A member of the RNA family "HNH endonuclease-associated RNA and ORF (HEARO) RNA" from Fervidicola ferrireducens, 236 nucleotides long. Taxonomically the source falls in Fervidicola (Bacteria, Bacillati, Bacillota, Clostridia).

RNA sequence: GUCAACUACCCCCGACUGAAGUCGGAGGCAUGUAAGCCUCGUGGUUGACCAGCCUGAGUGCCUGACCCGAAGGACACGGGGAUUAAGGUACUAUGUUGGCAAUAGGCUAAAGACCCACUCCGGGAUGCUCCUCCAGUCCCGGACCCUGGAAGUACUGGUUGCAGACAACCUUCGGGGUGUGGGCGAAACGGACCAGUACAAGCGCCGGUUGCCAACAUUGGCGAGGAGGGGGCCGG
Numbered sequence: 001g002u003c004a005a006c007u008a009c010c011c012c013c014g015a016c017u018g019a020a021g022u023c024g025g026a027g028g029c030a031u032g033u034a035a036g037c038c039u040c041g042u043g044g045u046u047g048a049c050c051a052g053c054c055u056g057a058g059u060g061c062c063u064g065a066c067c068c069g070a071a072g073g074a075c076a077c078g079g080g081g082a083u084u085a086a087g088g089u090a091c092u093a094u095g096u097u098g099g100c101a102a103u104a105g106g107c108u109a110a111a112g113a114c115c116c117a118c119u120c121c122g123g124g125a126u127g128c129u130c131c132u133c134c135a136g137u138c139c140c141g142g143a144c145c146c147u148g149g150a151a152g153u154a155c156u157g158g159u160u161g162c163a164g165a166c167a168a169c170c171u172u173c174g175g176g177g178u179g180u181g182g183g184c185g186a187a188a189c190g191g192a193c194c195a196g197u198a199c200a201a202g203c204g205c206c207g208g209u210u211g212c213c214a215a216c217a218u219u220g221g222c223g224a225g226g227a228g229g230g231g232g233c234c235g236g
Base pairs, nucleotide, nucleotide: 001049002048003047004046005045006044007043008042010028011027012025013024015022016021032037052222053221054220056218057092058091059090060089061088062087063086095216096215097214098213099212100211101210102209103208105206115149116148119143120142121141122140123139124138125137126136128231129230130229131228132227133226134225152199153198154197155196156195157194158193159192160191169185

A search with the family's covariance model found it, with a score of 98 bits. The family's RNA type in Rfam is non-coding RNA gene. For this family Rfam cites "Exceptional structured noncoding RNAs revealed by bacterial metagenome analysis" (Weinberg et al., Nature, 2009).